The family of this 266-nucleotide RNA sequence from Bacillus aerolatus is "BsrG". Rfam 15.1 lists 614 matches to the family in 343 species. It is annotated as a small RNA. About the family: bsrE, bsrG and bsrH pair through intermolecular interactions with antisense sRNAs. They form type I toxin/antitoxin system that includes an mRNA encoding for a short, toxic peptide (bsrE, bsrG and bsrH) and an antitoxin that is comprised of an antisense RNA. bsrG encodes a 39-amino-acid toxin, and the 180 nucleotide antisense sRNA called SR4 acts as the antitoxin (they overlap by 123 nucleotides). SR4 interaction with the 3'UTR of bsrG RNA promotes bsrG degradation and inhibits its translation. A search with the family's covariance model found it, with a score of 100 bits. Lineage of the source: Bacteria > Bacillati > Bacillota > Caryophanales > Bacillus. For this family Rfam cites "Novel small RNA-encoding genes in the intergenic regions of Bacillus subtilis" (Saito et al., Gene, 2008).

[Rfam]
RNA sequence: AACAAUAGAAUAGGGUUUCUCAAGGGUGGUCAGCACAUCCUCGGCAGAAAGGAGGGGGAGUGCUCGUGACGGUCUUUGAAGCGUUGAUGUUUGCGUGUACUUUUGCAAGCUUGAUCAUAGUAAUGCUGUCAUUUGACCAUAAAAAAUAACCCACCCUUGAGCCUGCAAGCAUGAGGGGUGAGUUGAGUUCCUUCUUAUAGCUUAUAGCGAUCGCCCUAGCAGGGAACCGUCUAUUGUAUGGACCGUUUGGUGUUCCAGCACCGGCG
Numbered sequence: 001a002a003c004a005a006u007a008g009a010a011u012a013g014g015g016u017u018u019c020u021c022a023a024g025g026g027u028g029g030u031c032a033g034c035a036c037a038u039c040c041u042c043g044g045c046a047g048a049a050a051g052g053a054g055g056g057g058g059a060g061u062g063c064u065c066g067u068g069a070c071g072g073u074c075u076u077u078g079a080a081g082c083g084u085u086g087a088u089g090u091u092u093g094c095g096u097g098u099a100c101u102u103u104u105g106c107a108a109g110c111u112u113g114a115u116c117a118u119a120g121u122a123a124u125g126c127u128g129u130c131a132u133u134u135g136a137c138c139a140u141a142a143a144a145a146a147u148a149a150c151c152c153a154c155c156c157u158u159g160a161g162c163c164u165g166c167a168a169g170c171a172u173g174a175g176g177g178g179u180g181a182g183u184u185g186a187g188u189u190c191c192u193u194c195u196u197a198u199a200g201c202u203u204a205u206a207g208c209g210a211u212c213g214c215c216c217u218a219g220c221a222g223g224g225a226a227c228c229g230u231c232u233a234u235u236g237u238a239u240g241g242a243c244c245g246u247u248u249g250g251u252g253u254u255c256c257a258g259c260a261c262c263g264g265c266g
Stems, first nucleotide, its partner, number of pairs: 002237004007232003014212004019161008028151003039055004068130006081096003104122003171198008213227001214224002244266003248263006